[Rfam]
RNA: RT-6 RNA
RNA sequence: UGCUAUAUGUGUAGGCAUAUAGGAAAAGAAUUGUUGUCAACUGUUCGACUAUGGGAUUUGAAAGAAUUUCAUCG
Numbered sequence: 001u002g003c004u005a006u007a008u009g010u011g012u013a014g015g016c017a018u019a020u021a022g023g024a025a026a027a028g029a030a031u032u033g034u035u036g037u038c039a040a041c042u043g044u045u046c047g048a049c050u051a052u053g054g055g056a057u058u059u060g061a062a063a064g065a066a067u068u069u070c071a072u073c074g
Stems, first nucleotide, its partner, number of pairs: 003022008053069002056067004